[Rfam]
RNA: TPP riboswitch aptamer (THI element)
RNA sequence: AACCAAGGUUGGGGGUGCUUGCAUAGCGGGCUGAGAUUACACCCUAAUACCUGAACCGGAUAAUACCGGCGUAGGGAAACCUGUUUACCGCACA
Numbered sequence: 001a002a003c004c005a006a007g008g009u010u011g012g013g014g015g016u017g018c019u020u021g022c023a024u025a026g027c028g029g030g031c032u033g034a035g036a037u038u039a040c041a042c043c044c045u046a047a048u049a050c051c052u053g054a055a056c057c058g059g060a061u062a063a064u065a066c067c068g069g070c071g072u073a074g075g076g077a078a079a080c081c082u083g084u085u086u087a088c089c090g091c092a093c094a
Stems, first nucleotide, its partner, number of pairs: 006082005011045004016039001017031005050075004056069004